[Rfam]
RNA sequence: GGUCAGACCGUUCUCGUAGGCGCCCGGCUCGGCUGCGGUGAGCGCGUCGGCGGCGAAGAAGUCGCCGUCCGCCAGCACGUCGAACUCGGUCUCGUUGUCGUAGGCGCCGUGCCCGCGCCUGCUGAGCUUGCCGUGCGCGAUCAGCACCACGCGGUCGGCCGCCUCGCCCUCGCGCAGCAGCACCUCGCCGGGGACGAAGUCCCGCUGCACACACGCCUCGGCCAGCGCCUGGAGGGUCGCCUGGUCGUCGAAGCCCGCCAGGCCGGGGAGCUCGGUCAGCUCGGCGGGGAUGACGGAGACCUCGGAGCCGGUGGCAUAGAACUCGACCCGGCCGUUGCCGAGCGUGUGGGUCAGCCGGCGGUUGACCCGGAACGUGCCGCCCGAGACCUGUGUCCAGGGCAGCACCUUCAGCAGCCAGCGCGAGGUGAUCGCCUGCAUCUGCGGCGGGGUCUUGGUGGUCGUCGCCAGGUUGCGCGCGGCCGCCGUGUCGAGGCUGAGCCGAGGCGCCGG
Numbered sequence: 001g002g003u004c005a006g007a008c009c010g011u012u013c014u015c016g017u018a019g020g021c022g023c024c025c026g027g028c029u030c031g032g033c034u035g036c037g038g039u040g041a042g043c044g045c046g047u048c049g050g051c052g053g054c055g056a057a058g059a060a061g062u063c064g065c066c067g068u069c070c071g072c073c074a075g076c077a078c079g080u081c082g083a084a085c086u087c088g089g090u091c092u093c094g095u096u097g098u099c100g101u102a103g104g105c106g107c108c109g110u111g112c113c114c115g116c117g118c119c120u121g122c123u124g125a126g127c128u129u130g131c132c133g134u135g136c137g138c139g140a141u142c143a144g145c146a147c148c149a150c151g152c153g154g155u156c157g158g159c160c161g162c163c164u165c166g167c168c169c170u171c172g173c174g175c176a177g178c179a180g181c182a183c184c185u186c187g188c189c190g191g192g193g194a195c196g197a198a199g200u201c202c203c204g205c206u207g208c209a210c211a212c213a214c215g216c217c218u219c220g221g222c223c224a225g226c227g228c229c230u231g232g233a234g235g236g237u238c239g240c241c242u243g244g245u246c247g248u249c250g251a252a253g254c255c256c257g258c259c260a261g262g263c264c265g266g267g268g269a270g271c272u273c274g275g276u277c278a279g280c281u282c283g284g285c286g287g288g289g290a291u292g293a294c295g296g297a298g299a300c301c302u303c304g305g306a307g308c309c310g311g312u313g314g315c316a317u318a319g320a321a322c323u324c325g326a327c328c329c330g331g332c333c334g335u336u337g338c339c340g341a342g343c344g345u346g347u348g349g350g351u352c353a354g355c356c357g358g359c360g361g362u363u364g365a366c367c368c369g370g371a372a373c374g375u376g377c378c379g380c381c382c383g384a385g386a387c388c389u390g391u392g393u394c395c396a397g398g399g400c401a402g403c404a405c406c407u408u409c410a411g412c413a414g415c416c417a418g419c420g421c422g423a424g425g426u427g428a429u430c431g432c433c434u435g436c437a438u439c440u441g442c443g444g445c446g447g448g449g450u451c452u453u454g455g456u457g458g459u460c461g462u463c464g465c466c467a468g469g470u471u472g473c474g475c476g477c478g479g480c481c482g483c484c485g486u487g488u489c490g491a492g493g494c495u496g497a498g499c500c501g502a503g504g505c506g507c508c509g510g
Base pairs, nucleotide, nucleotide: 005393007391008390010388012386013385014384016332017331019329020328024325026323027322029320030319038317039316040315043313044312045311049309050308051307054304055303056302058238059237062235063234065232066231067228068227069115071113079107081106082105087100088099089098090097121226122225123224124223127220130217133214134213135210137208138207139206144201148199154195159191160190165174166173167172239300241298242297244294245293246292247291248290249289255287256286257285258284259283261281262280263279264275266273333346334345335344355383357381358380359379360378361377365375366374395435396434397433398432401429403427404426405425407422409420411419441480442479444477446475448473451469452468453467454466455465456464481509482508484506485505486504488502489501490500492499

The family of this 510-nucleotide RNA sequence from Streptomyces zhaozhouensis is "Saccharopolyspora sRNA 350". Gene Ontology term of the family: regulation of secondary metabolite biosynthetic process. The match comes from Rfam's covariance-model search (92 bits). The family's consensus secondary structure was predicted with RNAfold.